[Rfam]
The record is a 173-nucleotide sequence from Chlorocebus sabaeus, which matches "Small Cajal body specific RNA 16" in Rfam. Rfam's curators write: scaRNAs are a specific class of small nuclear RNAs which localise to the Cajal bodies and guide the modification of RNA polymerase II transcribed spliceosomal RNAs U1, U2, U4, U5 and U12. ACA47 belongs to the H/ACA box class of guide RNAs as it has the predicted hairpin-hinge-hairpin-tail structure, the conserved H/ACA-box motifs and is found associated with GAR1. The match comes from Rfam's covariance-model search (148 bits). The family has 37 seed sequences and 790 matches in Rfam 15.1. The literature on the family includes a 2002 paper in EMBO J by Darzacq et al., "Cajal body-specific small nuclear RNAs: a novel class of 2'-O-methylation and pseudouridylation guide RNAs". By type it is a small Cajal body RNA. Rfam links the family to the GO terms RNA processing and nucleolus.
Nucleotides: 173
Stems, first nucleotide, its partner, number of pairs: 003080004008075003015069004019064002022061001025060001026055005032049003092113003096108004131172001137166002139163001142160003147156003
Number, partner (000 for none) and nucleotide at each position: 001000a002000u003080g004079g005078u006077c007000u008075g009074g010073g011000g012000a013000a014000a015069g016068g017067c018066u019064c020063c021000u022061g023000u024000g025060u026055g027054g028053u029052u030051g031000a032049a033048c034047c035000u036000g037000c038000c039000c040000a041000g042000u043000u044000g045000u046000g047034g048033g049032u050000a051030c052029a053028g054027c055026c056000u057000u058000g059000u060025a061022c062000u063020g064019g065000c066018a067017g068016c069015u070000c071000a072000a073010c074009c075008c076000u077006g078005a079004c080003c081000u082000a083000a084000a085000g086000u087000a088000a089000a090000u091000u092113c093112c094111c095000a096108g097107g098106a099105g100000a101000a102000g103000u104000c105099u106098u107097u108096c109000c110000u111094g112093g113092g114000a115000u116000u117000u118000g119000a120000a121000u122000u123000u124000g125000c126000a127000g128000u129000a130000a131172c132000a133000g134000a135000u136000g137166u138165g139163a140000a141000c142160a143159u144158u145000c146000u147156a148155g149154u150000g151000g152000c153000a154149g155148u156147u157000u158144g159143a160142u161000a162000c163139u164000a165138u166137a167000c168000a169000u170000a171000g172131g173000a